RNA sequence: GAGUUAAUGCGUGUGGCGAGGUUAAGGGAGUGCAGUCCCGGAGCCGAAGUGAAAGCGAGCCUGAAUAGGGCGCUUAGUCACACGCAUUAGACCCGAAACCAGGCGAGCUACCCAUGGCCAGGAUGAAGCGGGGUUAACCCCCCGUGGAGGUCCGAACCCGUUAGCAGUGAAAAGCUAUGGGAUGAGCUGUGGGUAGGAGUGAAAAGCUAAUCGAGCCUGGAGAUAGCUGGUU
Numbered sequence: 001g002a003g004u005u006a007a008u009g010c011g012u013g014u015g016g017c018g019a020g021g022u023u024a025a026g027g028g029a030g031u032g033c034a035g036u037c038c039c040g041g042a043g044c045c046g047a048a049g050u051g052a053a054a055g056c057g058a059g060c061c062u063g064a065a066u067a068g069g070g071c072g073c074u075u076a077g078u079c080a081c082a083c084g085c086a087u088u089a090g091a092c093c094c095g096a097a098a099c100c101a102g103g104c105g106a107g108c109u110a111c112c113c114a115u116g117g118c119c120a121g122g123a124u125g126a127a128g129c130g131g132g133g134u135u136a137a138c139c140c141c142c143c144g145u146g147g148a149g150g151u152c153c154g155a156a157c158c159c160g161u162u163a164g165c166a167g168u169g170a171a172a173a174g175c176u177a178u179g180g181g182a183u184g185a186g187c188u189g190u191g192g193g194u195a196g197g198a199g200u201g202a203a204a205a206g207c208u209a210a211u212c213g214a215g216c217c218u219g220g221a222g223a224u225a226g227c228u229g230g231u232u
Base pairs, nucleotide, nucleotide: 005089006088007087008086009085010084011083012082013081014080015079016078017077020045021044022043023042026039027038028037049056050055059071060070061069062068092230093229095227099220100219101218102217103216104215108196109195110194111193112192113191114190115189116188117187118186119184121153122152123151124150128145129144130143131142132141133140157181158180159179162177163176164175165174198208199207200206
The record is a 232-nucleotide part of an RNA from Dictyoglomus thermophilum, which matches "Bacterial large subunit ribosomal RNA" in Rfam. The base pairs follow the family's consensus structure, which is taken from published work. The sequence is in the family's curated seed alignment.